A member of the RNA family "MIR7502 microRNA precursor family" from Gossypium anomalum, 145 nucleotides long.

RNA sequence: CUGUAAAAUUUUCAUCAAUUUCUAUUGUUAAAAAUUGGUGUGGCUAAUGAAAUAACCAAAUAGUUAGAUAGGGUGUGCCAUAUGUACCUUAUGCUUACGUAUAGAGACCAAUUUUUAUUAGUAAAAAUAGAUGGAAUUUUAACAA
Number, nucleotide and partner (000 for none) at each position: 001c000002u144003g143004u142005a000006a140007a139008a138009u000010u136011u135012u134013c133014a132015u131016c130017a000018a128019u127020u126021u125022c000023u123024a122025u121026u120027g000028u000029u117030a116031a115032a114033a113034a000035u000036u000037g000038g000039u000040g000041u000042g000043g000044c000045u000046a000047a000048u000049g000050a000051a000052a000053u000054a000055a000056c000057c000058a000059a000060a000061u000062a000063g000064u000065u000066a000067g000068a000069u000070a000071g000072g000073g000074u000075g000076u000077g000078c000079c000080a000081u000082a000083u000084g000085u000086a000087c000088c000089u000090u000091a000092u000093g000094c000095u000096u000097a000098c000099g000100u000101a000102u000103a000104g000105a000106g000107a000108c000109c000110a000111a000112u000113u033114u032115u031116u030117a029118u000119u000120a026121g025122u024123a023124a000125a021126a020127a019128u018129a000130g016131a015132u014133g013134g012135a011136a010137u000138u008139u007140u006141a000142a004143c003144a002145a000

The base pairs follow the family's consensus structure, which was predicted with RNAalifold. NCBI's taxonomy places the organism under Eukaryota, Viridiplantae, malvids, Malvoideae, Gossypium. Its family is annotated with miRNA-mediated post-transcriptional gene silencing and RISC complex in the Gene Ontology.